A member of the RNA family "SmY spliceosomal RNA" from Bursaphelenchus okinawaensis, 73 nucleotides long.
RNA sequence: CAGUAUAUAUCAAAACAUUCAGGGUCUUUUAGAAGACCCGGUAGACAAUUUUUGGCUAGCACAUUUUGUGCUU
Number, nucleotide and partner (000 for none) at each position: 001c000002a000003g000004u000005a000006u000007a000008u000009a000010u000011c000012a000013a000014a000015a000016c000017a000018u000019u000020c000021a000022g039023g038024g037025u000026c035027u034028u033029u000030u000031a000032g000033a028034a027035g026036a000037c024038c023039c022040g000041g000042u000043a000044g000045a000046c000047a000048a000049u000050u000051u000052u000053u000054g000055g000056c000057u000058a072059g071060c070061a069062c068063a067064u000065u000066u000067u063068g062069u061070g060071c059072u058073u000

On this family, see MacMorris et al., RNA 2007: "A novel family of C. elegans snRNPs contains proteins associated with trans-splicing".
The match comes from Rfam's covariance-model search (49 bits).